Rfam assigns this 130-nucleotide sequence from Macaca mulatta to the family "Small nucleolar RNA SNORA61". Rfam's curators write: ACA61 is a member of the H/ACA class of snoRNA that guide the sites of modification of uridines to pseudouridines. Its family is annotated with RNA processing and nucleolus in the Gene Ontology. Rfam's curators put it in the seed alignment. The family's consensus secondary structure was predicted with PFOLD.

RNA sequence: AUCCUCUGGUUCCUUUUCCCAUUGGAUCUGAAUGCUGGUCUUGGUGGUUGUAAAAGGAGGAAAAGUAACACUGAAGGUGGCUUCGCAGUCUUGUAGUCUGGCAUAUCGUUUCCACAAUGGUUUGAAAUAA
Numbered sequence: 001a002u003c004c005u006c007u008g009g010u011u012c013c014u015u016u017u018c019c020c021a022u023u024g025g026a027u028c029u030g031a032a033u034g035c036u037g038g039u040c041u042u043g044g045u046g047g048u049u050g051u052a053a054a055a056g057g058a059g060g061a062a063a064a065g066u067a068a069c070a071c072u073g074a075a076g077g078u079g080g081c082u083u084c085g086c087a088g089u090c091u092u093g094u095a096g097u098c099u100g101g102c103a104u105a106u107c108g109u110u111u112c113c114a115c116a117a118u119g120g121u122u123u124g125a126a127a128u129a130a
Base pairs, nucleotide, nucleotide: 003060004059005058006057007056019047020046021045022044023043025040026039027038028037077118078117080115092108093107